[Rfam]
RNA sequence: UCGGCACAGUUAAUGGCACUGGAAGAAUUCACGGGGUAAUUUCUAUACCACCCGUGAUCUCUUAGUGGCAUCUAUGGUGCGGG
Numbered sequence: 001u002c003g004g005c006a007c008a009g010u011u012a013a014u015g016g017c018a019c020u021g022g023a024a025g026a027a028u029u030c031a032c033g034g035g036g037u038a039a040u041u042u043c044u045a046u047a048c049c050a051c052c053c054g055u056g057a058u059c060u061c062u063u064a065g066u067g068g069c070a071u072c073u074a075u076g077g078u079g080c081g082g083g
Stems, first nucleotide, its partner, number of pairs: 004080004009075002013071003017067002020064003023060001025059002029057006

A member of the RNA family "mir-263 microRNA precursor family" from Drosophila rhopaloa, 83 nucleotides long. For this family Rfam cites "Direct sequencing and expression analysis of a large number of miRNAs in Aedes aegypti and a multi-species survey of novel mosquito miRNAs" (Li et al., BMC Genomics, 2009).